[Rfam]
RNA sequence: AAUGUGCGAUAGACUUACCUCCACGCGGUGCACAAUGGGUAACGUAUACUCAUACGGCAAAUAUGUCUAU
Numbered sequence: 001a002a003u004g005u006g007c008g009a010u011a012g013a014c015u016u017a018c019c020u021c022c023a024c025g026c027g028g029u030g031c032a033c034a035a036u037g038g039g040u041a042a043c044g045u046a047u048a049c050u051c052a053u054a055c056g057g058c059a060a061a062u063a064u065g066u067c068u069a070u
Base pairs, nucleotide, nucleotide: 001036003034004033005032006031007030017029018028019027043056044055045054046053047052

Record summary
The family of this 70-nucleotide sequence from Rodentolepis nana is "HDV ribozyme from F. prausnitzii". Pairs were carried over by alignment from the consensus structure, which is taken from published work. The literature on the family includes a 2009 paper in Science by Webb et al., "Widespread occurrence of self-cleaving ribozymes".